RNA sequence: GUGACAGAAGAGAGUGAGCACAGAUGGUGUUUUCAUCCAUGUGUGACGGAAGUCAUUUGUGCUCACUCUCUCUCUGUCAC
Numbered sequence: 001g002u003g004a005c006a007g008a009a010g011a012g013a014g015u016g017a018g019c020a021c022a023g024a025u026g027g028u029g030u031u032u033u034c035a036u037c038c039a040u041g042u043g044u045g046a047c048g049g050a051a052g053u054c055a056u057u058u059g060u061g062c063u064c065a066c067u068c069u070c071u072c073u074c075u076g077u078c079a080c
Base pairs, nucleotide, nucleotide: 001080002079003078004077005076006075007074008073010070011069012068013067014066015065016064017063018062019061020060021059023057024056025055

Shown here is an 80-nucleotide sequence from Kalanchoe fedtschenkoi, a member of the family "mir-156 microRNA precursor family".
The match comes from Rfam's covariance-model search (69 bits).